[Rfam]
RNA sequence: AGCACUGUGUGGUAUCUGCAGCCAGUUGGUUGAUCAGCUGGUUUGCUCAAAUGUCAGUGCUAGACAAACUCAACAUCUGGCAUCGUUGGUCUCCAUGCUGCCUUUGUUUGGAGUCCUGGUAUAUCGGUUGAAACACUU
Numbered sequence: 001a002g003c004a005c006u007g008u009g010u011g012g013u014a015u016c017u018g019c020a021g022c023c024a025g026u027u028g029g030u031u032g033a034u035c036a037g038c039u040g041g042u043u044u045g046c047u048c049a050a051a052u053g054u055c056a057g058u059g060c061u062a063g064a065c066a067a068a069c070u071c072a073a074c075a076u077c078u079g080g081c082a083u084c085g086u087u088g089g090u091c092u093c094c095a096u097g098c099u100g101c102c103u104u105u106g107u108u109u110g111g112a113g114u115c116c117u118g119g120u121a122u123a124u125c126g127g128u129u130g131a132a133a134c135a136c137u138u
Stems, first nucleotide, its partner, number of pairs: 002060006014054002017051001018046004023041001024039005066124001068122001070119003079108004
Dot-bracket structure: .((((((......((.(((((.((((((......))))).).))))....).)))))))).....(.(.(((......((((......................))))........)))..).)..............
Overview:
Rfam assigns this 138-nucleotide RNA from Scophthalmus maximus to the family "Small nucleolar RNA SNORA8". From the family's description: ACA8 is a member of the H/ACA class of snoRNA that guide the sites of modification of uridines to pseudouridines. Its Rfam clan is "SNORA8 clan". The match comes from Rfam's covariance-model search (50 bits). NCBI's taxonomy places the organism under Eukaryota, Eumetazoa, Neopterygii, Clupeocephala, Scophthalmus. It is annotated as an H/ACA-box small nucleolar RNA. The family has 5 seed sequences and 1,490 matches in Rfam 15.1.